Shown here is a 46-nucleotide RNA from Prosthecobacter gellanilyticus, a member of the family "Acido-Lenti-1 RNA".
Rfam 15.1 lists 2,607 matches to the family in 171 species.
Rfam classes the family as a small RNA.
Pairs were carried over by alignment from the consensus structure, which is taken from published work.
Taxonomically the source falls in Prosthecobacter (Bacteria, Pseudomonadati, Verrucomicrobiia, Verrucomicrobiaceae).
[Rfam]
RNA sequence: CCUAGGGCUUGCGCCCUAGGCUGGUAUGGCCCGCGCCGUUGGCGCU
Numbered sequence: 001c002c003u004a005g006g007g008c009u010u011g012c013g014c015c016c017u018a019g020g021c022u023g024g025u026a027u028g029g030c031c032c033g034c035g036c037c038g039u040u041g042g043c044g045c046u
Base pairs, nucleotide, nucleotide: 001020002019003018004017005016006015007014008013033045034044035043036042037041